[Rfam]
Rfam assigns this 86-nucleotide RNA sequence from Halalkalibacter nanhaiisediminis to the family "c-di-GMP-I riboswitch aptamer". Lineage of the source: Bacteria > Bacillota > Bacilli > Caryophanales > Halalkalibacter. About the family: GEMM was predicted in a large-scale screen for bacterial structured RNA regulatory elements. Genes associated with GEMM are involved in a diverse array of functions, including chemotaxis regulation, signal transduction, secretion and chitin. A search with the family's covariance model found it, with a score of 80 bits. Pairs were carried over by alignment from the consensus structure, which is taken from published work.

RNA sequence: CUUAGAAAAUGGCAAACUUACUGAAAGGUAAGGACGCAAAGCUAAGGGCCUACAGCAUGAUAUGCCAUGGUCGCCUGGUUACCUCA
Numbered sequence: 001c002u003u004a005g006a007a008a009a010u011g012g013c014a015a016a017c018u019u020a021c022u023g024a025a026a027g028g029u030a031a032g033g034a035c036g037c038a039a040a041g042c043u044a045a046g047g048g049c050c051u052a053c054a055g056c057a058u059g060a061u062a063u064g065c066c067a068u069g070g071u072c073g074c075c076u077g078g079u080u081a082c083c084u085c086a
Stems, first nucleotide, its partner, number of pairs: 012037002017032006040080004045076003048071003055065004